This 79-nucleotide RNA sequence from Zea mays belongs to the Rfam family "Small nucleolar RNA U54".
The family's RNA type in Rfam is C/D-box small nucleolar RNA.
For this family Rfam cites "The high diversity of snoRNAs in plants: identification and comparative study of 120 snoRNA genes from Oryza sativa" (Chen et al., Nucleic Acids Res, 2003).
Rfam 15.1 lists 614 matches to the family in 206 species.
RNA sequence: AGCUCAGUGAUUGUAGCCAAUUACAUUGGCAAUAUACGCUAUGCUGACCUCAGUUUGAUGAACAUUUUUACUGAGAGCU
Numbered sequence: 001a002g003c004u005c006a007g008u009g010a011u012u013g014u015a016g017c018c019a020a021u022u023a024c025a026u027u028g029g030c031a032a033u034a035u036a037c038g039c040u041a042u043g044c045u046g047a048c049c050u051c052a053g054u055u056u057g058a059u060g061a062a063c064a065u066u067u068u069u070a071c072u073g074a075g076a077g078c079u
Stems, first nucleotide, its partner, number of pairs: 001079005
Dot-bracket structure: (((((.....................................................................)))))